Guanidine-I riboswitch aptamer: a 101-nucleotide RNA from Sulfurimicrobium lacus. Rfam's curators write: This family represents a conserved RNA structure found upstream of the ykkC and yxkD genes in Bacillus subtilis and related genes in other bacteria. The function of this family is unclear although it has been suggested that it may function to switch on efflux pumps and detoxification systems in response to harmful environmental molecules. The match comes from Rfam's covariance-model search (83 bits). Gene Ontology term of the family: regulation of gene expression.
RNA sequence: CUUUAGGCACGCUAGGGUUCCGGUCCUGUGAAACAGGGCGCUGGUCCGAGAGCGCGCCGGCCUCGCUGGAGGUUACACGGAGGGAUAAAAGCCCGGGAGAG
Numbered sequence: 001c002u003u004u005a006g007g008c009a010c011g012c013u014a015g016g017g018u019u020c021c022g023g024u025c026c027u028g029u030g031a032a033a034c035a036g037g038g039c040g041c042u043g044g045u046c047c048g049a050g051a052g053c054g055c056g057c058c059g060g061c062c063u064c065g066c067u068g069g070a071g072g073u074u075a076c077a078c079g080g081a082g083g084g085a086u087a088a089a090a091g092c093c094c095g096g097g098a099g100a101g
Stems, first nucleotide, its partner, number of pairs: 007057002010054003015047002020044002022041001023039006059074006076096001078099001082094003